Shown here is a 564-nucleotide part of an RNA from Companilactobacillus allii, a member of the family "Bacterial large subunit ribosomal RNA".
Pairs were carried over by alignment from the consensus structure, which is taken from published work.
RNA sequence: UAUAAAGGGCGCACGGUGGAUGCCUAGGCACUAGGAGCCGAUGAAGGACGUAACUAACAACGAUAUGCCUCGGGGAGCUGUAAGUAAGCUUUGAUCCGGGGAUUUCCGAAUGGGGGAACCCAAUCAUCGUAAUGGAUGAUUACUUGUAUGUGAAUACAUAGCAUAUUAAGAGGAAGACGCAAUGAACUGAAACAUCUAAGUAAUUGCAGGAAGAGAAAGAAAAUUCGAUUCCCUGAGUAGCGGCGAGCGAAACGGGAAGAGCCCAAACCAAAGAGCUUGCUCUUUGGGGUUGUAGGACUGACGAUAUGAGAAAAAAAGUAAGUAUAGCUGAACAACUUGGAAAAGUUGGCCAAAGAGAGUGAAAGCCUCGUAAGCGAAAUACGAACUACUCUAGUCGGGAUCCUGAGUACGGCGGAACACGAGAAAUUCCGUCGGAAUCUGGGAGGACCAUCUCCCAAGGCUAAAUACUCCCUAGUGACCGAUAGUGAACCAGUACCGUGAGGGAAAGGUGAAAAGAACCCCGGAAGGGGAGUGAAAUAGAUCCUGAAACCGUGUGCCUACAAG
Numbered sequence: 001u002a003u004a005a006a007g008g009g010c011g012c013a014c015g016g017u018g019g020a021u022g023c024c025u026a027g028g029c030a031c032u033a034g035g036a037g038c039c040g041a042u043g044a045a046g047g048a049c050g051u052a053a054c055u056a057a058c059a060a061c062g063a064u065a066u067g068c069c070u071c072g073g074g075g076a077g078c079u080g081u082a083a084g085u086a087a088g089c090u091u092u093g094a095u096c097c098g099g100g101g102a103u104u105u106c107c108g109a110a111u112g113g114g115g116g117a118a119c120c121c122a123a124u125c126a127u128c129g130u131a132a133u134g135g136a137u138g139a140u141u142a143c144u145u146g147u148a149u150g151u152g153a154a155u156a157c158a159u160a161g162c163a164u165a166u167u168a169a170g171a172g173g174a175a176g177a178c179g180c181a182a183u184g185a186a187c188u189g190a191a192a193c194a195u196c197u198a199a200g201u202a203a204u205u206g207c208a209g210g211a212a213g214a215g216a217a218a219g220a221a222a223a224u225u226c227g228a229u230u231c232c233c234u235g236a237g238u239a240g241c242g243g244c245g246a247g248c249g250a251a252a253c254g255g256g257a258a259g260a261g262c263c264c265a266a267a268c269c270a271a272a273g274a275g276c277u278u279g280c281u282c283u284u285u286g287g288g289g290u291u292g293u294a295g296g297a298c299u300g301a302c303g304a305u306a307u308g309a310g311a312a313a314a315a316a317a318g319u320a321a322g323u324a325u326a327g328c329u330g331a332a333c334a335a336c337u338u339g340g341a342a343a344a345g346u347u348g349g350c351c352a353a354a355g356a357g358a359g360u361g362a363a364a365g366c367c368u369c370g371u372a373a374g375c376g377a378a379a380u381a382c383g384a385a386c387u388a389c390u391c392u393a394g395u396c397g398g399g400a401u402c403c404u405g406a407g408u409a410c411g412g413c414g415g416a417a418c419a420c421g422a423g424a425a426a427u428u429c430c431g432u433c434g435g436a437a438u439c440u441g442g443g444a445g446g447a448c449c450a451u452c453u454c455c456c457a458a459g460g461c462u463a464a465a466u467a468c469u470c471c472c473u474a475g476u477g478a479c480c481g482a483u484a485g486u487g488a489a490c491c492a493g494u495a496c497c498g499u500g501a502g503g504g505a506a507a508g509g510u511g512a513a514a515a516g517a518a519c520c521c522c523g524g525a526a527g528g529g530g531a532g533u534g535a536a537a538u539a540g541a542u543c544c545u546g547a548a549a550c551c552g553u554g555u556g557c558c559u560a561c562a563a564g
Base pairs, nucleotide, nucleotide: 007559008558009557010556011555012554013553014552015551016550022544023509024508027480028479029477030476031475032474033473034472035471036469037468038173039172046107047106048105049062050061051060068101069100070099071098072097073096074095077089078088079087112121113120114119122141123140124139125138126137127136128135143170144169145168146166147165148164149163150162151161178209179207180206181205182204183203189196190195219226220225229465230257231256232255233254240248241247260462261461262460263459268287269286270285271284272283273282274281294404295403296402298398299397300396301395302394314390317387318386319385322382323381324380325379327375328374329373333348334347335346336345337344351355357369358368359367410434411433412432413431414430415429416428417427441456442455443454444453445452496503497502519530520529521528522527